[Rfam]
RNA sequence: AUACUUACCUGGUACAGGGGAUACCGUGAUCAGCUAGGCGGUUCCCCCAGGUCGAGGCCCUUCCAUUGCACUCCGGUCGGGCUGAACCCUGCGAUAAUCCCAAAUGCGGAUUACUCGGGUACGCCAGUUUUCAGUGUGGGGGUCUGCGUUCGCGCUAACCCCUG
Numbered sequence: 001a002u003a004c005u006u007a008c009c010u011g012g013u014a015c016a017g018g019g020g021a022u023a024c025c026g027u028g029a030u031c032a033g034c035u036a037g038g039c040g041g042u043u044c045c046c047c048c049a050g051g052u053c054g055a056g057g058c059c060c061u062u063c064c065a066u067u068g069c070a071c072u073c074c075g076g077u078c079g080g081g082c083u084g085a086a087c088c089c090u091g092c093g094a095u096a097a098u099c100c101c102a103a104a105u106g107c108g109g110a111u112u113a114c115u116c117g118g119g120u121a122c123g124c125c126a127g128u129u130u131u132c133a134g135u136g137u138g139g140g141g142g143u144c145u146g147c148g149u150u151c152g153c154g155c156u157a158a159c160c161c162c163u164g
Stems, first nucleotide, its partner, number of pairs: 012122004017047005023042005049090003056083003060079001063076002092117003095113003099109002138163006146155003
A member of the RNA family "U1 spliceosomal RNA" from Mizuhopecten yessoensis, 164 nucleotides long.
The source organism's lineage runs through Eukaryota, Spiralia, Lophotrochozoa, Bivalvia and Mizuhopecten.
The family has 100 seed sequences and 40,184 matches in Rfam 15.1.
From the family's description: U1 is a small nuclear RNA (snRNA) component of the spliceosome (involved in pre-mRNA splicing). Its 5' end forms complementary base pairs with the 5' splice junction, thus defining the 5' donor site of an intron. There are significant differences in sequence and secondary structure between metazoan and yeast U1 snRNAs, the latter being much longer (568 nucleotides as compared to 164 nucleotides in human). Nevertheless, secondary structure predictions suggest that all U1 snRNAs share a 'common core' consisting of helices I, II, the proximal region of III, and IV. This family does not contain the larger yeast sequences.